[Rfam]
RNA sequence: CCAGGAUGAGGUAGUGGGUUGUAUAGUCGAGAAUGACACCCCGGGAGAUGACUGUACAACCUCCUAGCUUUUCCUGA
Numbered sequence: 001c002c003a004g005g006a007u008g009a010g011g012u013a014g015u016g017g018g019u020u021g022u023a024u025a026g027u028c029g030a031g032a033a034u035g036a037c038a039c040c041c042c043g044g045g046a047g048a049u050g051a052c053u054g055u056a057c058a059a060c061c062u063c064c065u066a067g068c069u070u071u072u073c074c075u076g077a
Stems, first nucleotide, its partner, number of pairs: 002076005008070003012066003016062012040047001
RNA: let-7 microRNA precursor family
Organism: Oryzias sinensis